[Rfam]
RNA sequence: AGAUGAGGUAGAGGUCGCAAUAAUCAACAGUAGUCCACAAGAGAUGUUAGAGCAUCGCUGACGGUGGAUGAAAGGGUUUAUUGCCGAAGUUUAAAUAUGCUCAAUCAUAUUUAGGCUGGGGCUGUCGCUUAAUAGGUGCAGAACUGUCACAUUCGUGAGAAUGUGUUGAGCUAUCUUUUCA
Numbered sequence: 001a002g003a004u005g006a007g008g009u010a011g012a013g014g015u016c017g018c019a020a021u022a023a024u025c026a027a028c029a030g031u032a033g034u035c036c037a038c039a040a041g042a043g044a045u046g047u048u049a050g051a052g053c054a055u056c057g058c059u060g061a062c063g064g065u066g067g068a069u070g071a072a073a074g075g076g077u078u079u080a081u082u083g084c085c086g087a088a089g090u091u092u093a094a095a096u097a098u099g100c101u102c103a104a105u106c107a108u109a110u111u112u113a114g115g116c117u118g119g120g121g122c123u124g125u126c127g128c129u130u131a132a133u134a135g136g137u138g139c140a141g142a143a144c145u146g147u148c149a150c151a152u153u154c155g156u157g158a159g160a161a162u163g164u165g166u167u168g169a170g171c172u173a174u175c176u177u178u179u180c181a
Base pairs, nucleotide, nucleotide: 006176007175008174009173010172011171017084018083019082020081021080022079023078025076033069034068035067036066037065038064088117089116090115091114092113093112094111095110096109097108098107099106118145119144122141123140124139126138127137128136129135148165149164150163151162152161153160

The family of this 181-nucleotide RNA sequence from Kurthia sibirica is "Lysine riboswitch aptamer".
The source organism's lineage runs through Bacteria, Bacillati, Caryophanales, Caryophanaceae and Kurthia.
The match comes from Rfam's covariance-model search (118 bits).
Rfam's curators write: Riboswitches are metabolite binding domains within certain messenger RNAs that serve as precision sensors for their corresponding targets.
Gene Ontology term of the family: lysine biosynthetic process.